Shown here is a 90-nucleotide RNA sequence, a member of the family "Small nucleolar RNA snoR31/Z110/Z27".
This family contains several related snoRNAs including R31, Z27 and Z110.
It is one of the family's seed sequences.
The base pairs follow the family's consensus structure, which was predicted with PFOLD.
Gene Ontology terms of the family: RNA processing and nucleolus.

[Rfam]
RNA sequence: CUGGAGAAAUGAUGAGAAAUCAGAUAAAUCUUAGGACACCUUCUGACACAGAUUCUGUGUAUGAGAAUGACAUCAUAUUCUGAUCUUCAG
Numbered sequence: 001c002u003g004g005a006g007a008a009a010u011g012a013u014g015a016g017a018a019a020u021c022a023g024a025u026a027a028a029u030c031u032u033a034g035g036a037c038a039c040c041u042u043c044u045g046a047c048a049c050a051g052a053u054u055c056u057g058u059g060u061a062u063g064a065g066a067a068u069g070a071c072a073u074c075a076u077a078u079u080c081u082g083a084u085c086u087u088c089a090g
Base pairs, nucleotide, nucleotide: 001090002089003088004087005086006085007084044050045049